This 129-nucleotide RNA sequence from Novipirellula aureliae belongs to the Rfam family "SAM-I/IV (S-adenosyl methionine) riboswitch aptamer".
Gene Ontology terms of the family: S-adenosylmethionine metabolic process and regulation of gene expression.

[Rfam]
RNA sequence: UUAUUUCAUGAAGAGUAGGGCUGACGCCCUCGCCAACCUGCCCUGUCCGGGCAAGGUGGUCCCUGCGUCCAGGUCAUUGCGAUCUGCAACACAGGCAUGUGGCCGAGCUUGGCAACAAAGCGGACCCAC
Number, nucleotide and partner (000 for none) at each position: 001u000002u000003a000004u000005u000006u000007c099008a098009u097010g096011a000012a000013g000014a000015g031016u000017a030018g029019g028020g027021c026022u000023g000024a000025c000026g021027c020028c019029c018030u017031c015032g060033c059034c058035a000036a000037c056038c055039u054040g052041c051042c050043c000044u000045g000046u123047c122048c000049g000050g042051g041052c040053a000054a039055g038056g037057u000058g034059g033060u032061c000062c000063c000064u000065g000066c000067g000068u000069c000070c000071a000072g000073g000074u000075c000076a000077u000078u000079g000080c000081g000082a000083u000084c000085u000086g000087c000088a000089a000090c000091a000092c000093a000094g000095g000096c010097a009098u008099g007100u000101g000102g113103c112104c111105g110106a000107g000108c000109u000110u105111g104112g103113c102114a000115a000116c000117a000118a000119a000120g000121c000122g047123g046124a000125c000126c000127c000128a000129c000

Rfam 15.1 lists 567 matches to the family in 508 species.
Taxonomically the source falls in Novipirellula (Bacteria, Planctomycetia, Pirellulales, Pirellulaceae).